[Rfam]
RNA sequence: CGUGCGGGCCGGGCCCCUCUGACGUACGCGCCACCAAGCGUUCGUGAUGUCGGACCGCUUUG
Numbered sequence: 001c002g003u004g005c006g007g008g009c010c011g012g013g014c015c016c017c018u019c020u021g022a023c024g025u026a027c028g029c030g031c032c033a034c035c036a037a038g039c040g041u042u043c044g045u046g047a048u049g050u051c052g053g054a055c056c057g058c059u060u061u062g
Stems, first nucleotide, its partner, number of pairs: 006056002009053004022045003026041004
Background
The record is a 62-nucleotide sequence from Mesorhizobium sp. 8, which matches "terC RNA" in Rfam. The base pairs follow the family's consensus structure, which is taken from published work. The source organism's lineage runs through Bacteria, Pseudomonadota, Alphaproteobacteria, Phyllobacteriaceae and Mesorhizobium.